[Rfam]
Nucleotides: 074
Stems, first nucleotide, its partner, number of pairs: 011063006019055003023051004028046003
Number, partner (000 for none) and nucleotide at each position: 001000u002000c003000c004000c005000g006000g007000u008000g009000c010000c011063c012062u013061u014060c015059a016058u017000u018000c019055c020054a021053c022000c023051g024050g025049a026048a027000u028046c029045u030044g031000u032000c033000g034000a035000u036000a037000c038000a039000g040000a041000a042000a043000a044030c045029a046028g047000a048026u049025u050024u051023c052000a053021g054020u055019g056000c057000a058016a059015u060014g061013a062012a063011g064000c065000u066000c067000a068000u069000c070000a071000g072000g073000g074000a